[Rfam]
RNA sequence: UGAAAUGUUUUCUAGGGUUCCGCAACCGUAUUGUUGGUCUGGUCCGAGAGAAAACUCACAGCACUGUGCUGUGUCACGGAGGGAUAAAAGCCUGGGAGAA
Numbered sequence: 001u002g003a004a005a006u007g008u009u010u011u012c013u014a015g016g017g018u019u020c021c022g023c024a025a026c027c028g029u030a031u032u033g034u035u036g037g038u039c040u041g042g043u044c045c046g047a048g049a050g051a052a053a054a055c056u057c058a059c060a061g062c063a064c065u066g067u068g069c070u071g072u073g074u075c076a077c078g079g080a081g082g083g084a085u086a087a088a089a090g091c092c093u094g095g096g097a098g099a100a
Stems, first nucleotide, its partner, number of pairs: 007055006015045002020042002022039001023036004057073007075095001077098001081093003
Record summary
The family of this 100-nucleotide sequence from Bacillus sp. HNG is "Guanidine-I riboswitch aptamer". The organism belongs to Bacillus, within Bacteria.